[Rfam]
RNA sequence: GGAAUAUAAACCGCCUCUUAACUUUUAACUAAAAAUACUAAGAACCGGUUCUUAAAUAUUUAAGAGCCGGUUCUUAGUAUUUUUAGUUAAAAGUUAAGAGACGAUUUAUUAUAUUCU
Numbered sequence: 001g002g003a004a005u006a007u008a009a010a011c012c013g014c015c016u017c018u019u020a021a022c023u024u025u026u027a028a029c030u031a032a033a034a035a036u037a038c039u040a041a042g043a044a045c046c047g048g049u050u051c052u053u054a055a056a057u058a059u060u061u062a063a064g065a066g067c068c069g070g071u072u073c074u075u076a077g078u079a080u081u082u083u084u085a086g087u088u089a090a091a092a093g094u095u096a097a098g099a100g101a102c103g104a105u106u107u108a109u110u111a112u113a114u115u116c117u
Stems, first nucleotide, its partner, number of pairs: 001117008009106002012103002015100022038077007